[Rfam]
RNA sequence: CGGCGGGACACCUCUCCCCAACGAGAGGCUAAUUACCUGGAAGGGUAUCAAUA
Dot-bracket structure: ..........((((((......)))))).....(((((....)))))......
The record is a 53-nucleotide RNA sequence from Rhizobium sp. AC44/96, which matches "serC leader" in Rfam. The source organism's lineage runs through Bacteria, Pseudomonadati, Alphaproteobacteria, Hyphomicrobiales and Rhizobium. The base pairs follow the family's consensus structure. About the family: This family is a putative regulatory RNA structure that is found upstream of the serC-serA operon in some alpha-proteobacteria. The final stem of the structure overlaps the ribosome binding site of the serC reading frame. By type it is a cis-regulatory leader. A reference for the family is Corbino et al. (2005), "Evidence for a second class of S-adenosylmethionine riboswitches and other regulatory RNA motifs in alpha-proteobacteria", Genome Biol.